[Rfam]
RNA sequence: CAAACGAUUUUUUUUUUAUGAGUAGGCUGUUUUUCUGUGUCACAGCCACAGCAGCCAUUUAAUAACUUGUCUGUUAUUCAUGAAGGAAGCAA
Numbered sequence: 001c002a003a004a005c006g007a008u009u010u011u012u013u014u015u016u017u018a019u020g021a022g023u024a025g026g027c028u029g030u031u032u033u034u035c036u037g038u039g040u041c042a043c044a045g046c047c048a049c050a051g052c053a054g055c056c057a058u059u060u061a062a063u064a065a066c067u068u069g070u071c072u073g074u075u076a077u078u079c080a081u082g083a084a085g086g087a088a089g090c091a092a
Stems, first nucleotide, its partner, number of pairs: 011087006019080006025047006051074004
Dot-bracket structure: ..........((((((..((((((((((((...........))))))...((((................)))))))))).)))))).....
A member of the RNA family "rpsL sRNA" from Austrofundulus limnaeus, 92 nucleotides long. Lineage of the source: Eukaryota > Opisthokonta > Chordata > Craniata > Austrofundulus. Pairs were carried over by alignment from the consensus structure, which is taken from published work. The family's RNA type in Rfam is small RNA.